[Rfam]
RNA sequence: AGCUUCAGCGGAAUGAGGGCAUGGCCUCCUUCUGGUGAAGGACACUUCCUCCCGCAGCCGCCUGCCUGCAGCGCUCCUUCUAGCUCCAUGUGCUGCAGCUGCGUCACCCCGGGAAAGAAAGUGCUUCAGAGC
Numbered sequence: 001a002g003c004u005u006c007a008g009c010g011g012a013a014u015g016a017g018g019g020c021a022u023g024g025c026c027u028c029c030u031u032c033u034g035g036u037g038a039a040g041g042a043c044a045c046u047u048c049c050u051c052c053c054g055c056a057g058c059c060g061c062c063u064g065c066c067u068g069c070a071g072c073g074c075u076c077c078u079u080c081u082a083g084c085u086c087c088a089u090g091u092g093c094u095g096c097a098g099c100u101g102c103g104u105c106a107c108c109c110c111g112g113g114a115a116a117g118a119a120a121g122u123g124c125u126u127c128a129g130a131g132c
Stems, first nucleotide, its partner, number of pairs: 002132004008127001010125002014118001016030004031114003035055001037052001039050004057107001059103003066098006077092001
This 132-nucleotide RNA sequence from Enhydra lutris belongs to the Rfam family "FGF-1 internal ribosome entry site (IRES)". A reference for the family is Martineau et al. (2004), "Internal Ribosome Entry Site Structural Motifs Conserved among Mammalian Fibroblast Growth Factor 1 Alternatively Spliced mRNAs", Mol Cell Biol.